This 105-nucleotide RNA from Prunus avium belongs to the Rfam family "MIR6274 microRNA precursor family".
Rfam 15.1 lists 342 matches to the family in 8 species.
RNA sequence: GGAUAACACUUUUUGUUAUUCUCGGUCAAUAACACAAUGACACGUAGGAUAAUUUUUUCACGUAUCAUUGUGUUAUUAACCGAGAAUAAUAAAACAGUGUUAUCC
Numbered sequence: 001g002g003a004u005a006a007c008a009c010u011u012u013u014u015g016u017u018a019u020u021c022u023c024g025g026u027c028a029a030u031a032a033c034a035c036a037a038u039g040a041c042a043c044g045u046a047g048g049a050u051a052a053u054u055u056u057u058u059c060a061c062g063u064a065u066c067a068u069u070g071u072g073u074u075a076u077u078a079a080c081c082g083a084g085a086a087u088a089a090u091a092a093a094a095c096a097g098u099g100u101u102a103u104c105c
Stems, first nucleotide, its partner, number of pairs: 002104004011094009021084006028077013042063004047058003

The base pairs follow the family's consensus structure, which was predicted with RNAalifold.